[Rfam]
RNA sequence: AUUUUAGCAUAAGUAUAUCCCAUGUAAGCUUUGGGACAUACUUAUGCUAAAC
Numbered sequence: 001a002u003u004u005u006a007g008c009a010u011a012a013g014u015a016u017a018u019c020c021c022a023u024g025u026a027a028g029c030u031u032u033g034g035g036a037c038a039u040a041c042u043u044a045u046g047c048u049a050a051a052c
Base pairs, nucleotide, nucleotide: 006048007047008046009045010044011043012042014040015039016038018036019035020034021033022031

Shown here is a 52-nucleotide sequence from Leptonychotes weddellii, a member of the family "mir-1302 microRNA precursor family". Pairs were carried over by alignment from the consensus structure, which was predicted with WAR. It scores 66 bits against the family's covariance model. NCBI's taxonomy places the organism under Eukaryota, Euteleostomi, Mammalia, Laurasiatheria, Leptonychotes.